[Rfam]
Shown here is a 77-nucleotide sequence from Chinchilla lanigera, a member of the family "mir-1912 microRNA precursor family". The organism belongs to Chinchilla, within Eukaryota. The base pairs follow the family's consensus structure, which was predicted with RNAalifold. Its family is annotated with miRNA-mediated post-transcriptional gene silencing and RISC complex in the Gene Ontology. The literature on the family includes a 2010 paper in Genes Dev by Chiang et al., "Mammalian microRNAs: experimental evaluation of novel and previously annotated genes".
RNA sequence: CUCUAGGAUGUGCUCAUUGCACGAACUGGGUAUAUUUUUAUUAAAUACCCAGAGCAUGCAUUGUGAACAUAAUAGAG
Number, nucleotide and partner (000 for none) at each position: 001c077002u076003c075004u074005a073006g000007g000008a070009u069010g068011u067012g000013c065014u000015c063016a062017u000018u060019g059020c058021a057022c000023g055024a000025a000026c052027u051028g050029g000030g048031u047032a046033u045034a000035u000036u000037u000038u000039u000040a000041u000042u000043a000044a000045a033046u032047a031048c030049c000050c028051a027052g026053a000054g000055c023056a000057u021058g020059c019060a018061u000062u016063g015064u000065g013066a000067a011068c010069a009070u008071a000072a000073u005074a004075g003076a002077g001